[Rfam]
This 152-nucleotide RNA sequence from Roseibium alexandrii belongs to the Rfam family "FMN riboswitch aptamer (RFN element)". Taxonomically the source falls in Roseibium (Bacteria, Pseudomonadati, Pseudomonadota, Hyphomicrobiales). For this family Rfam cites "Regulation of riboflavin biosynthesis and transport genes in bacteria by transcriptional and translational attenuation" (Vitreschak et al., Nucleic Acids Res, 2002). The match comes from Rfam's covariance-model search (113 bits). Gene Ontology term of the family: FMN binding.

RNA sequence: AACAGUUCUCGGGGCGGGGUGAAAGUCCCCACCGGCGGUAUCAGGGAAACCUGGAGCCCGCGAGCGCCUUGGUAAGUCGUGUUUGCCAAGGGUCAGCAGAUCCGGUGAGAAGCCGGAGCCGACGGUUAUAGUCCGGAUGAUAGAGAGCUUUG
Dot-bracket structure: ...(((((((......(((.......))).[[((((((.................[[))))..((..............................))...(((((.......)))))]])).(((.....]]))).......)))))))...